The family of this 98-nucleotide sequence from Solanum lycopersicum is "Small nucleolar RNA R72". Rfam 15.1 lists 59 matches to the family in 45 species. Gene Ontology terms of the family: nucleolus and RNA processing. The literature on the family includes a 2003 paper in Nucleic Acids Res by Chen et al., "The high diversity of snoRNAs in plants: identification and comparative study of 120 snoRNA genes from Oryza sativa". The source organism's lineage runs through Eukaryota, Embryophyta, Tracheophyta, Magnoliopsida and Solanum subgen. Lycopersicon. Rfam's curators write: snoR72 is a C/D box small nucleolar RNA, which acts as a methylation guide for 25S ribosomal RNA in Arabidopsis.
RNA sequence: AUGCAGAUGAUGACAAUAUUUUUGAGGAUAUAAGAAGCUCAAACUUUAUUGGAGUUUGAGCGAUGCUUUUUCCUAAUACUUCCAUGACUCUGAUGCAU
Number, nucleotide and partner (000 for none) at each position: 001a098002u097003g096004c095005a094006g000007a000008u000009g000010a000011u000012g000013a000014c000015a000016a000017u000018a000019u000020u000021u000022u000023u000024g000025a000026g000027g000028a000029u000030a000031u000032a000033a000034g000035a000036a000037g061038c060039u059040c058041a057042a056043a055044c054045u053046u052047u051048a000049u000050u000051g047052g046053a045054g044055u043056u042057u041058g040059a039060g038061c037062g000063a000064u000065g000066c000067u000068u000069u000070u000071u000072c000073c000074u000075a000076a000077u000078a000079c000080u000081u000082c000083c000084a000085u000086g000087a000088c000089u000090c000091u000092g000093a000094u005095g004096c003097a002098u001